[Rfam]
RNA sequence: UUGCGGUGGGUAAGUCUUGCACGACCAGCUCCCCUUGAAACUCCCCAGGGCCGGAAGGCAGCAAGGAUAGAGGGUCGUAGCGGUGCGAUGCAAGUAGCUUACCCACUU
Numbered sequence: 001u002u003g004c005g006g007u008g009g010g011u012a013a014g015u016c017u018u019g020c021a022c023g024a025c026c027a028g029c030u031c032c033c034c035u036u037g038a039a040a041c042u043c044c045c046c047a048g049g050g051c052c053g054g055a056a057g058g059c060a061g062c063a064a065g066g067a068u069a070g071a072g073g074g075u076c077g078u079a080g081c082g083g084u085g086c087g088a089u090g091c092a093a094g095u096a097g098c099u100u101a102c103c104c105a106c107u108u
Base pairs, nucleotide, nucleotide: 008104009103010102011101012100013099014098015097017093018092019091020090021089022087023086024084025083

Rfam assigns this 108-nucleotide sequence from Candidatus [Bacteroides] periocalifornicus to the family "Bacteroidales small SRP". Lineage of the source: Bacteria > Pseudomonadati > Bacteroidota. Rfam links the family to the GO terms SRP-dependent cotranslational protein targeting to membrane, signal sequence recognition and signal recognition particle, plasma membrane targeting. The match comes from Rfam's covariance-model search (104 bits).